[Rfam]
RNA sequence: ACCCAGGCUUCACUUGAAGCCAUAAUCAUACACUAAUUUUUUACCA
Dot-bracket structure: .....((((((....)))))).........................
Numbered sequence: 001a002c003c004c005a006g007g008c009u010u011c012a013c014u015u016g017a018a019g020c021c022a023u024a025a026u027c028a029u030a031c032a033c034u035a036a037u038u039u040u041u042u043a044c045c046a
Stems, first nucleotide, its partner, number of pairs: 006021006

Shown here is a 46-nucleotide RNA sequence from Theileria parva, a member of the family "Histone 3' UTR stem-loop".
Lineage of the source: Eukaryota > Alveolata > Aconoidasida > Theileriidae > Theileria.
Rfam describes the family as follows. The mRNAs of metazoan histone genes lack a poly-A tail. 3' end processing occurs at a site between a highly conserved stem-loop (modelled by this family) and a purine rich region around 20 nts downstream (the histone downstream element, or HDE).
The family has 50 seed sequences and 44,596 matches in Rfam 15.1.
Its family is annotated with mRNA 3'-end processing by stem-loop binding and cleavage in the Gene Ontology.